This 55-nucleotide RNA sequence from Paracoccus sanguinis belongs to the Rfam family "terC RNA".

RNA sequence: CGUCGGGACCGGGCCCCUCUGGCGAUCUUGGCGGAUCGUGAUGUCGGUCGCAUCA
Numbered sequence: 001c002g003u004c005g006g007g008a009c010c011g012g013g014c015c016c017c018u019c020u021g022g023c024g025a026u027c028u029u030g031g032c033g034g035a036u037c038g039u040g041a042u043g044u045c046g047g048u049c050g051c052a053u054c055a
Stems, first nucleotide, its partner, number of pairs: 006049002009047004022039007

Overview:
It scores 54 bits against the family's covariance model.